[Rfam]
RNA sequence: CGCAGUAACACACACUCAAGCCCUGGUACCUAAGUCACAAGAUAAGGUGCCCUGGCCGCAGCCCCCGAGGUUGCCAGGGUGCAGGAAGAAAUGACUGCAUCUCCCGUAUUUGGAAAGGUGUACUCAGUGUCCCAG
Numbered sequence: 001c002g003c004a005g006u007a008a009c010a011c012a013c014a015c016u017c018a019a020g021c022c023c024u025g026g027u028a029c030c031u032a033a034g035u036c037a038c039a040a041g042a043u044a045a046g047g048u049g050c051c052c053u054g055g056c057c058g059c060a061g062c063c064c065c066c067g068a069g070g071u072u073g074c075c076a077g078g079g080u081g082c083a084g085g086a087a088g089a090a091a092u093g094a095c096u097g098c099a100u101c102u103c104c105c106g107u108a109u110u111u112g113g114a115a116a117g118g119u120g121u122a123c124u125c126a127g128u129g130u131c132c133c134a135g
Stems, first nucleotide, its partner, number of pairs: 003129002006126001012121004017117001020056003025051006034043003058074005077102008087092001103113002
RNA: Molybdenum/Tungsten riboswitch aptamer (Moco RNA motif)